[Rfam]
RNA: Mammalian CPEB3 ribozyme
Organism: Alligator sinensis
RNA sequence: UGAGCAUUUGAGGCCACAGCAGAAGCGCUUACGGCAUGGCCUUGUCAGAUUCCAACAAAUCUGCAAAUUCUGCU
Numbered sequence: 001u002g003a004g005c006a007u008u009u010g011a012g013g014c015c016a017c018a019g020c021a022g023a024a025g026c027g028c029u030u031a032c033g034g035c036a037u038g039g040c041c042u043u044g045u046c047a048g049a050u051u052c053c054a055a056c057a058a059a060u061c062u063g064c065a066a067a068u069u070c071u072g073c074u
Base pairs, nucleotide, nucleotide: 012041013040014039015038018074019073020072021071022070023069024068025037027035046063047062048061049060050059051058